[Rfam]
RNA sequence: CAACUAGCAUAGCCAAAUUCCUAGCACCUGGGAAGCGGGGGAACCAGUUAUGGGUGAAUUGAUCUUGCAACAGAGGGAUCAUAGGGGACCUUCAACCGAAUCCUUAAGCUAACCUCGCAGGCAUUGGAAGGGGUAUAU
Numbered sequence: 001c002a003a004c005u006a007g008c009a010u011a012g013c014c015a016a017a018u019u020c021c022u023a024g025c026a027c028c029u030g031g032g033a034a035g036c037g038g039g040g041g042a043a044c045c046a047g048u049u050a051u052g053g054g055u056g057a058a059u060u061g062a063u064c065u066u067g068c069a070a071c072a073g074a075g076g077g078a079u080c081a082u083a084g085g086g087g088a089c090c091u092u093c094a095a096c097c098g099a100a101u102c103c104u105u106a107a108g109c110u111a112a113c114c115u116c117g118c119a120g121g122c123a124u125u126g127g128a129a130g131g132g133g134u135a136u137a138u
Base pairs, nucleotide, nucleotide: 012122013121014120018034019033020032021031022030023029035118036117037116038115039114040113052103053102054101060081061080062079063078064077065076066075084097085096
Background
The record is a 138-nucleotide sequence from Paenibacillus xylanivorans, which matches "c-di-AMP riboswitch aptamer (ydaO/yuaA leader)" in Rfam.